A member of the RNA family "Purine riboswitch aptamer" from Salipaludibacillus neizhouensis, 101 nucleotides long. Riboswitches are metabolite binding domains within certain messenger RNAs that serve as precision sensors for their corresponding targets. For this family Rfam cites "Structure of a natural guanine-responsive riboswitch complexed with the metabolite hypoxanthine" (Batey et al., Nature, 2004). Gene Ontology term of the family: purine nucleobase biosynthetic process.
RNA sequence: UAAGAAAAAAAUACGUUACCUCAUAUAAUAUUGGGAAUUCGGCCCAGAAGUUUCUACCUACUGACCUUAAUCAGUGGACUAUGAGGGAGAUGGACACAAAU
Numbered sequence: 001u002a003a004g005a006a007a008a009a010a011a012u013a014c015g016u017u018a019c020c021u022c023a024u025a026u027a028a029u030a031u032u033g034g035g036a037a038u039u040c041g042g043c044c045c046a047g048a049a050g051u052u053u054c055u056a057c058c059u060a061c062u063g064a065c066c067u068u069a070a071u072c073a074g075u076g077g078a079c080u081a082u083g084a085g086g087g088a089g090a091u092g093g094a095c096a097c098a099a100a101u
Stems, first nucleotide, its partner, number of pairs: 019086007029049001031047005058077007